[Rfam]
RNA sequence: GAUUGGCCUUGCCUUCUCUUCCCGGUUCUUCCUGGAGUUGGGAAAAGCUGGGUUGAGGGGCAUUUAAAAAAUAAUA
Dot-bracket structure: .............(((((..(((((...((((((....))))))...)))))..))))).................
RNA: mir-320 microRNA precursor family
Organism: Cercocebus atys